RNA: ncRNA Repressor of NFAT (nuclear factor of activated T cells)
Organism: Cavia porcellus
RNA sequence: GCGAGCACAUGGCGCCAGGAACUUUGAAACUUGCCUUUACAUAUUACAUGAAUCUAUAUAAGAAAAUCUCUUUUAAUGAGGAGUGAUGUAGUUACAAACUCUCCAGAGCCAUAAUUAAGGCAAACUAAUUGAAGUUGUGUUUUGACACACUUUCCAAACUCACGGGUGCCGGAUGACAUAUUCACAACACUGCUGCUGCACAACCAUGGAGACGGCAAAAUCAUUAGGCUAAUAACACUUAUUUGCAUUCUUAUCAUGCCGGCAGCUCUCCUUUAAAUACUGUUUCUACUAUUGCUCCUUUACUCGAAGUUUCCACGGGAAGAUAUUAACAGUAAUUAUUAGUACUUUAGUGGAAUUUUAAUGUGAAGAA
Numbered sequence: 001g002c003g004a005g006c007a008c009a010u011g012g013c014g015c016c017a018g019g020a021a022c023u024u025u026g027a028a029a030c031u032u033g034c035c036u037u038u039a040c041a042u043a044u045u046a047c048a049u050g051a052a053u054c055u056a057u058a059u060a061a062g063a064a065a066a067u068c069u070c071u072u073u074u075a076a077u078g079a080g081g082a083g084u085g086a087u088g089u090a091g092u093u094a095c096a097a098a099c100u101c102u103c104c105a106g107a108g109c110c111a112u113a114a115u116u117a118a119g120g121c122a123a124a125c126u127a128a129u130u131g132a133a134g135u136u137g138u139g140u141u142u143u144g145a146c147a148c149a150c151u152u153u154c155c156a157a158a159c160u161c162a163c164g165g166g167u168g169c170c171g172g173a174u175g176a177c178a179u180a181u182u183c184a185c186a187a188c189a190c191u192g193c194u195g196c197u198g199c200a201c202a203a204c205c206a207u208g209g210a211g212a213c214g215g216c217a218a219a220a221u222c223a224u225u226a227g228g229c230u231a232a233u234a235a236c237a238c239u240u241a242u243u244u245g246c247a248u249u250c251u252u253a254u255c256a257u258g259c260c261g262g263c264a265g266c267u268c269u270c271c272u273u274u275a276a277a278u279a280c281u282g283u284u285u286c287u288a289c290u291a292u293u294g295c296u297c298c299u300u301u302a303c304u305c306g307a308a309g310u311u312u313c314c315a316c317g318g319g320a321a322g323a324u325a326u327u328a329a330c331a332g333u334a335a336u337u338a339u340u341a342g343u344a345c346u347u348u349a350g351u352g353g354a355a356u357u358u359u360a361a362u363g364u365g366a367a368g369a370a
Stems, first nucleotide, its partner, number of pairs: 047363003051359001053354005060347003068083006088339008099108003119296004131153004136149005164272003168266002194211001196209003214260004228246002231243004
Dot-bracket structure: ..............................................(((.(.(((((..(((.....((((((....))))))....((((((((...(((....)))..........((((........((((.(((((....)))))))))..........(((.((........................(.(((........))).)..((((..........((.((((.....)))).))..........))))....))...)))....................))))...................................)))))))).....)))..)))))....).))).......